About this RNA
The family of this 500-nucleotide part of an RNA from Oryza brachyantha is "Eukaryotic large subunit ribosomal RNA". For this family Rfam cites "Crystal structure of the ribosome at 5.5 A resolution" (Yusupov et al., Science, 2001). It is one of the family's seed sequences.

RNA sequence: UGAAUUAAUGUAGGUAAGGGAAGUCGGCAAAAUGGAUCCGUAACUUCGGAAUAAGGAUUGGCUCUGAGGUCCUGGAUGUGCCAGGCUUGGAUGGAAGCUGUGAGCGGUGUGGGCCCCCAAAGGCCUCGUGCUGACGGGUAGACCCCACGCUUGCAAACGGCGGAAGUCCCGGCUUUUAUGCAGUUGUGUGUGUAGUGGCCAUCGCUAAAAGGACAACUCAGAACUGGCGCUGACCAGGGAAGUUCGACUGUCUAAUUAAAACAAAGCAUCGCGAUGGCGCCCAAAGCGUGAUGACGCGAUGUGAUUUCUGCCCAGUGCUCUGAAUGUCAAUGUGAAGAAAUUCAAUGAAGCGCGGGUAAACGGCGGGAGUAACUAUGACUCUCUUAAGGUAGCCAAAUGCCUCGUCAUCUAAUUAGUGACGCGCAUGAAUGGAUUAACGAAACUUCCACUGUCCCUAUCUACUCUUCAGCGAAACCGCAGGCAAGGGAACGGACUUGCAA
Numbered sequence: 001u002g003a004a005u006u007a008a009u010g011u012a013g014g015u016a017a018g019g020g021a022a023g024u025c026g027g028c029a030a031a032a033u034g035g036a037u038c039c040g041u042a043a044c045u046u047c048g049g050a051a052u053a054a055g056g057a058u059u060g061g062c063u064c065u066g067a068g069g070u071c072c073u074g075g076a077u078g079u080g081c082c083a084g085g086c087u088u089g090g091a092u093g094g095a096a097g098c099u100g101u102g103a104g105c106g107g108u109g110u111g112g113g114c115c116c117c118c119a120a121a122g123g124c125c126u127c128g129u130g131c132u133g134a135c136g137g138g139u140a141g142a143c144c145c146c147a148c149g150c151u152u153g154c155a156a157a158c159g160g161c162g163g164a165a166g167u168c169c170c171g172g173c174u175u176u177u178a179u180g181c182a183g184u185u186g187u188g189u190g191u192g193u194a195g196u197g198g199c200c201a202u203c204g205c206u207a208a209a210a211g212g213a214c215a216a217c218u219c220a221g222a223a224c225u226g227g228c229g230c231u232g233a234c235c236a237g238g239g240a241a242g243u244u245c246g247a248c249u250g251u252c253u254a255a256u257u258a259a260a261a262c263a264a265a266g267c268a269u270c271g272c273g274a275u276g277g278c279g280c281c282c283a284a285a286g287c288g289u290g291a292u293g294a295c296g297c298g299a300u301g302u303g304a305u306u307u308c309u310g311c312c313c314a315g316u317g318c319u320c321u322g323a324a325u326g327u328c329a330a331u332g333u334g335a336a337g338a339a340a341u342u343c344a345a346u347g348a349a350g351c352g353c354g355g356g357u358a359a360a361c362g363g364c365g366g367g368a369g370u371a372a373c374u375a376u377g378a379c380u381c382u383c384u385u386a387a388g389g390u391a392g393c394c395a396a397a398u399g400c401c402u403c404g405u406c407a408u409c410u411a412a413u414u415a416g417u418g419a420c421g422c423g424c425a426u427g428a429a430u431g432g433a434u435u436a437a438c439g440a441a442a443c444u445u446c447c448a449c450u451g452u453c454c455c456u457a458u459c460u461a462c463u464c465u466u467c468a469g470c471g472a473a474a475c476c477g478c479a480g481g482c483a484a485g486g487g488a489a490c491g492g493a494c495u496u497g498c499a500a
Base pairs, nucleotide, nucleotide: 001468002467003466004465010462011461012460013459014458015457016456018454019453020452035059036058037057038056039055044049060225061224063222064221065220066219067218068217069214070213071212072211073210075203076202077201078200080199081198082197083196085173086172087171089169090168091167092166097161098160099159100158101156106151107150108149109148110147111146112145113144116141125138126137127136128135129134226230238447239446240445241444242443243442244441245439246438249263250262251261266302267301268300269299270298271297272296273295275291277289278288279287280286306433307432308431310364311363312362315361316360317357318356319355320354322353325352326351327350333344334343335342336341365383366382367381368380369379370378384388404420405419406418407417408416481498482497483496484495485494